[Rfam]
RNA sequence: GUUGUCCUGCGAGAUGGCAUUCUCGCGUAACCGCUGGUCGAGCCGGCUGAUGAUGCCUACAGUUGC
Numbered sequence: 001g002u003u004g005u006c007c008u009g010c011g012a013g014a015u016g017g018c019a020u021u022c023u024c025g026c027g028u029a030a031c032c033g034c035u036g037g038u039c040g041a042g043c044c045g046g047c048u049g050a051u052g053a054u055g056c057c058u059a060c061a062g063u064u065g066c
Stems, first nucleotide, its partner, number of pairs: 010025004016057006033047004
Shown here is a 66-nucleotide RNA from Paraburkholderia sp. DHOC27, a member of the family "Fluoride riboswitch aptamer (crcB RNA motif)". The organism belongs to Paraburkholderia, within Bacteria. A search with the family's covariance model found it, with a score of 42 bits. For this family Rfam cites "Widespread genetic switches and toxicity resistance proteins for fluoride" (Baker et al., Science, 2012).